The family of this 110-nucleotide RNA sequence from Streptococcus hyointestinalis is "Streptococcus RNA 266". Pairs were carried over by alignment from the consensus structure.

RNA sequence: AAUGAUGGUGUGGUUGCUUUUCAUUAUAAGUCUUAUGGGACUUUUUUCAUACAGAUAAAAAGCCCUAUAACCUCUGAGGUGGCGUUACCCACUACAGAUAUUAUAGAGCC
Numbered sequence: 001a002a003u004g005a006u007g008g009u010g011u012g013g014u015u016g017c018u019u020u021u022c023a024u025u026a027u028a029a030g031u032c033u034u035a036u037g038g039g040a041c042u043u044u045u046u047u048c049a050u051a052c053a054g055a056u057a058a059a060a061a062g063c064c065c066u067a068u069a070a071c072c073u074c075u076g077a078g079g080u081g082g083c084g085u086u087a088c089c090c091a092c093u094a095c096a097g098a099u100a101u102u103a104u105a106g107a108g109c110c
Stems, first nucleotide, its partner, number of pairs: 001025005008017002028043005062109002065106001067104004073098002078093005
Dot-bracket structure: (((((..((......))...)))))..(((((......)))))..................((.(.((((..((...(((((......)))))...))..)))).).)).
For this family Rfam cites "Identification of 88 regulatory small RNAs in the TIGR4 strain of the human pathogen Streptococcus pneumoniae" (Acebo et al., RNA, 2012). The family has 4 seed sequences and 223 matches in Rfam 15.1.